[Rfam]
RNA: drum RNA
RNA sequence: UGGCGUUGAAGCAGUUGACUGUGUCGGCAAGCAGCUGAUUGUGGAGCUUGAUCUUGGGUUAUGCGAUAACCUCAAACCGAAUAGGUUCUUCGGAACUGAAUGAAAACGCUUUUC
Numbered sequence: 001u002g003g004c005g006u007u008g009a010a011g012c013a014g015u016u017g018a019c020u021g022u023g024u025c026g027g028c029a030a031g032c033a034g035c036u037g038a039u040u041g042u043g044g045a046g047c048u049u050g051a052u053c054u055u056g057g058g059u060u061a062u063g064c065g066a067u068a069a070c071c072u073c074a075a076a077c078c079g080a081a082u083a084g085g086u087u088c089u090u091c092g093g094a095a096c097u098g099a100a101u102g103a104a105a106a107c108g109c110u111u112u113u114c
Stems, first nucleotide, its partner, number of pairs: 002048003011042007019034004024080004063109003084097004